[Rfam]
RNA sequence: UAGUAGUCCGAUGGAUCGAGAGAUGAAGGAUGAGGCGUAGGACAGCUAAACUGUAAAAGGAAUAACAGCAUUGCAGAGGGCUAAUAAACCACAAGGGUUAUAGAAGAAUAUCCCUAUCCUCGAAAAGGCAGCAGAGGAGAUAGUGCUUACAUAUUUGUAAGUGCGUCGUGAGCGAAAUGAAGAGAUGCUUCGGAAUCGGCUUAUCUUAGUUCCCAAGUGUACAGGGCGAUUAGGCGGGUUGAGAAACCAAUGUACACCUACA
Numbered sequence: 001u002a003g004u005a006g007u008c009c010g011a012u013g014g015a016u017c018g019a020g021a022g023a024u025g026a027a028g029g030a031u032g033a034g035g036c037g038u039a040g041g042a043c044a045g046c047u048a049a050a051c052u053g054u055a056a057a058a059g060g061a062a063u064a065a066c067a068g069c070a071u072u073g074c075a076g077a078g079g080g081c082u083a084a085u086a087a088a089c090c091a092c093a094a095g096g097g098u099u100a101u102a103g104a105a106g107a108a109u110a111u112c113c114c115u116a117u118c119c120u121c122g123a124a125a126a127g128g129c130a131g132c133a134g135a136g137g138a139g140a141u142a143g144u145g146c147u148u149a150c151a152u153a154u155u156u157g158u159a160a161g162u163g164c165g166u167c168g169u170g171a172g173c174g175a176a177a178u179g180a181a182g183a184g185a186u187g188c189u190u191c192g193g194a195a196u197c198g199g200c201u202u203a204u205c206u207u208a209g210u211u212c213c214c215a216a217g218u219g220u221a222c223a224g225g226g227c228g229a230u231u232a233g234g235c236g237g238g239u240u241g242a243g244a245a246a247c248c249a250a251u252g253u254a255c256a257c258c259u260a261c262a
Base pairs, nucleotide, nucleotide: 006031007030008029009028015024016023017022090170091169092168094115095114096113097112099110100109101108117138118137119136120135121134139167140166141165143164144163146161147160148159149158150157173198174197175196217257218256219255220254221253222252223251237248238247239246240245
A member of the RNA family "Clostridiales-3 RNA" from Lachnospiraceae bacterium NE2001, 262 nucleotides long. The family's consensus secondary structure is taken from published work.